[Rfam]
Interferon gamma 5' UTR regulatory element: a 168-nucleotide sequence from Rhinolophus ferrumequinum. Pairs were carried over by alignment from the consensus structure, which is taken from published work. The family's RNA type in Rfam is cis-regulatory element. Rfam 15.1 lists 135 matches to the family in 125 species. A search with the family's covariance model found it, with a score of 129 bits.
RNA sequence: ACUUUUUCUGCUCAUCUGCGGAUCGGCUAUUAGAGGAGAAAGAUCAGCUAAGUCCUUCGGAGCUGAUCACCUUAGUACAGGACCUACUGAUUUCAUCAACUUCGGCUUCACUCUCGCCAAACAAUGAAUUAUACCGGUUAUAUCUUAGCUUUUCAGCUCUGCGUGAUU
Numbered sequence: 001a002c003u004u005u006u007u008c009u010g011c012u013c014a015u016c017u018g019c020g021g022a023u024c025g026g027c028u029a030u031u032a033g034a035g036g037a038g039a040a041a042g043a044u045c046a047g048c049u050a051a052g053u054c055c056u057u058c059g060g061a062g063c064u065g066a067u068c069a070c071c072u073u074a075g076u077a078c079a080g081g082a083c084c085u086a087c088u089g090a091u092u093u094c095a096u097c098a099a100c101u102u103c104g105g106c107u108u109c110a111c112u113c114u115c116g117c118c119a120a121a122c123a124a125u126g127a128a129u130u131a132u133a134c135c136g137g138u139u140a141u142a143u144c145u146u147a148g149c150u151u152u153u154c155a156g157c158u159c160u161g162c163g164u165g166a167u168u
Stems, first nucleotide, its partner, number of pairs: 009069002012066003015119001018117002020114003025107004032101002036097001041093007051085002056081002059078001120168002124164003130142004147158004